About this RNA: Rfam assigns this 54-nucleotide RNA sequence from Pseudomonas salomonii to the family "Guanidine-II riboswitch aptamer (mini-ykkC)". It scores 44 bits against the family's covariance model. The base pairs follow the family's consensus structure, which is taken from published work. NCBI's taxonomy places the organism under Bacteria, Pseudomonadota, Gammaproteobacteria, Pseudomonadaceae, Pseudomonas. Rfam links the family to the GO term regulation of gene expression.
RNA sequence: UCGCGAGGACGACCUCGCGACGCUCUCAUGCGCUUAAAUCCGGGGACGACCCCA
Numbered sequence: 001u002c003g004c005g006a007g008g009a010c011g012a013c014c015u016c017g018c019g020a021c022g023c024u025c026u027c028a029u030g031c032g033c034u035u036a037a038a039u040c041c042g043g044g045g046a047c048g049a050c051c052c053c054a
Stems, first nucleotide, its partner, number of pairs: 001020008042053004